Rfam assigns this 83-nucleotide RNA sequence from Denticeps clupeoides to the family "mir-22 microRNA precursor family". The base pairs follow the family's consensus structure, which was predicted with RNAalifold. It scores 64 bits against the family's covariance model. Rfam links the family to the GO terms RISC complex and miRNA-mediated post-transcriptional gene silencing. Lineage of the source: Eukaryota > Euteleostomi > Osteoglossocephalai > Otomorpha > Denticeps.
RNA sequence: GGCUGCUCCACAGCAGGUCUUCAGGGGCAAACUUUAUGUAAAGUUGAAAUAAAGCUGCCAGCUGAAGAACUGCUCUGGUCUGC
Dot-bracket structure: ....(.(..(.(.....(((((...(((.(.(((((.............))))).))))....))))).....).).).)...